[Rfam]
RNA sequence: UACAUGCUUAACUGUAAGUCCCUUUGGAUAAAAGCGUUUGCUAAAUGGCUAUUA
Number, nucleotide and partner (000 for none) at each position: 001u000002a000003c000004a000005u000006g000007c000008u000009u000010a000011a000012c000013u043014g041015u040016a039017a000018g000019u000020c036021c000022c034023u033024u032025u031026g000027g000028a000029u000030a000031a025032a024033a023034g022035c000036g020037u000038u000039u016040g015041c014042u000043a013044a000045a000046u000047g000048g000049c000050u000051a000052u000053u000054a000
RNA: UnaL2 LINE 3' element
Organism: Oncorhynchus kisutch